[Rfam]
RNA sequence: GCACACGUGGUUUAGUGGUAUAAUUCUCGCCUGCCACGCGGGAGCCCCGAGUUCGAUUCUCGGCGUGUGCA
Numbered sequence: 001g002c003a004c005a006c007g008u009g010g011u012u013u014a015g016u017g018g019u020a021u022a023a024u025u026c027u028c029g030c031c032u033g034c035c036a037c038g039c040g041g042g043a044g045c046c047c048c049g050a051g052u053u054c055g056a057u058u059c060u061c062g063g064c065g066u067g068u069g070c071a
Base pairs, nucleotide, nucleotide: 001070002069003068004067005066006065007064010024011023012022026042027041028040029039030038047063048062049061050060051059
Dot-bracket structure: (((((((..(((.........))).(((((.......)))))....(((((.......)))))))))))).